RNA sequence: AUGCAUGUUUCUAAGGUUUAUGGCUGGUAGUAAUCAUGGGGUCUCCAACUGCAUGGGAAAAUAACCUGAAGAAACUUUGACAACACAGGUCAGCAUAGAAAAUGUAGUUGUCACUCAUUUUUCGUAUAUUU
Numbered sequence: 001a002u003g004c005a006u007g008u009u010u011c012u013a014a015g016g017u018u019u020a021u022g023g024c025u026g027g028u029a030g031u032a033a034u035c036a037u038g039g040g041g042u043c044u045c046c047a048a049c050u051g052c053a054u055g056g057g058a059a060a061a062u063a064a065c066c067u068g069a070a071g072a073a074a075c076u077u078u079g080a081c082a083a084c085a086c087a088g089g090u091c092a093g094c095a096u097a098g099a100a101a102a103u104g105u106a107g108u109u110g111u112c113a114c115u116c117a118u119u120u121u122u123c124g125u126a127u128a129u130u131u
Stems, first nucleotide, its partner, number of pairs: 011039002016035001018033004070122004083111002086104002
Rfam assigns this 131-nucleotide RNA from Erinaceus europaeus to the family "Small nucleolar RNA SNORA44". By type it is an H/ACA-box small nucleolar RNA. Its family is annotated with RNA processing and nucleolus in the Gene Ontology. ACA44 is a member of the H/ACA class of snoRNA that guide the sites of modification of uridines to pseudouridines. Its Rfam clan is "SNORA44 clan". The literature on the family includes a 2001 paper in EMBO J by Huttenhofer et al., "RNomics: an experimental approach that identifies 201 candidates for novel, small, non-messenger RNAs in mouse". The match comes from Rfam's covariance-model search (100 bits).